[Rfam]
RNA sequence: GGGUCCGGUGGGCCGCCGGGCUCCUCAAGAACCGGGAACAGAACUACCCGCCCACCCACCCUCCCGGCCGUGUCACCCGUCCGGGUGACCGGCUUGCCGGGGCGGGAUUUGGGCCGUUACGUUCGCUGGGACAACCACAAACAGAGACGGCCCCCGGCCGGGACGGCAAUCCCGAUCGAGGGCCUGACCGAUCAGGAAGUAGCCCCUUCCCG
Numbered sequence: 001g002g003g004u005c006c007g008g009u010g011g012g013c014c015g016c017c018g019g020g021c022u023c024c025u026c027a028a029g030a031a032c033c034g035g036g037a038a039c040a041g042a043a044c045u046a047c048c049c050g051c052c053c054a055c056c057c058a059c060c061c062u063c064c065c066g067g068c069c070g071u072g073u074c075a076c077c078c079g080u081c082c083g084g085g086u087g088a089c090c091g092g093c094u095u096g097c098c099g100g101g102g103c104g105g106g107a108u109u110u111g112g113g114c115c116g117u118u119a120c121g122u123u124c125g126c127u128g129g130g131a132c133a134a135c136c137a138c139a140a141a142c143a144g145a146g147a148c149g150g151c152c153c154c155c156g157g158c159c160g161g162g163a164c165g166g167c168a169a170u171c172c173c174g175a176u177c178g179a180g181g182g183c184c185u186g187a188c189c190g191a192u193c194a195g196g197a198a199g200u201a202g203c204c205c206c207u208u209c210c211c212g
Stems, first nucleotide, its partner, number of pairs: 007192001009190002015068004073088006101127005149184005155178002160173004195210005
Rfam assigns this 212-nucleotide RNA from Streptomyces xinghaiensis to the family "Streptomyces sRNA 4677". By type it is a small RNA. Rfam describes the family as follows. Located in the intergenic region between anti-sigma factor SCO4677 gene and a putative regulatory protein gene SCO4676. scr4677 expression requires the SCO4677 activity and scr4677 sRNA itself seem to affect the levels of the SCO4676-associated transcripts. The base pairs follow the family's consensus structure.